A member of the RNA family "mir-2968 microRNA precursor family" from Gallus gallus, 106 nucleotides long. For this family Rfam cites "Song exposure regulates known and novel microRNAs in the zebra finch auditory forebrain" (Gunaratne et al., BMC Genomics, 2011). The organism belongs to Gallus, within Eukaryota. Gene Ontology terms of the family: RISC complex and miRNA-mediated post-transcriptional gene silencing.

RNA sequence: GCUGCCCUGCGAGGUGCUGUCCUCCAGGUCGCUUUGGCAGCCCUCGUCGUUGAGCGAACUCUGCUUGGUGACCUUGGGCGAGAGCAGCUUCACCAGGUCGCCUAGC
Numbered sequence: 001g002c003u004g005c006c007c008u009g010c011g012a013g014g015u016g017c018u019g020u021c022c023u024c025c026a027g028g029u030c031g032c033u034u035u036g037g038c039a040g041c042c043c044u045c046g047u048c049g050u051u052g053a054g055c056g057a058a059c060u061c062u063g064c065u066u067g068g069u070g071a072c073c074u075u076g077g078g079c080g081a082g083a084g085c086a087g088c089u090u091c092a093c094c095a096g097g098u099c100g101c102c103u104a105g106c
Stems, first nucleotide, its partner, number of pairs: 001106004006097004011090003015086004020081002022078003026074008036065005044057004